[Rfam]
The family of this 114-nucleotide sequence from Propithecus coquereli is "Y RNA". The family's RNA type in Rfam is non-coding RNA gene.
Nucleotides: 114
Stems, first nucleotide, its partner, number of pairs: 001110005007104002010102002014098002016093005044074001047071002
Number, partner (000 for none) and nucleotide at each position: 001110g002109g003108c004107u005106g006000g007104u008103c009000c010102g011101a012000a013000g014098g015097u016093a017092g018091u019090g020089a021000a022000u023000u024000a025000u026000c027000u028000c029000a030000c031000u032000u033000g034000a035000u036000u037000g038000u039000u040000c041000a042000c043000a044074g045000u046000c047071a048070g049000u050000u051000a052000c053000a054000g055000a056000u057000u058000g059000a060000a061000c062000u063000c064000c065000u066000u067000g068000u069000u070048c071047u072000a073000c074044u075000a076000c077000u078000u079000c080000c081000u082000c083000c084000u085000c086000u087000c088000c089020u090019c091018a092017c093016u094000a095000c096000u097015a098014c099000a100000c101011u102010u103008g104007a105000g106005u107004a108003g109002u110001c111000u112000u113000u114000a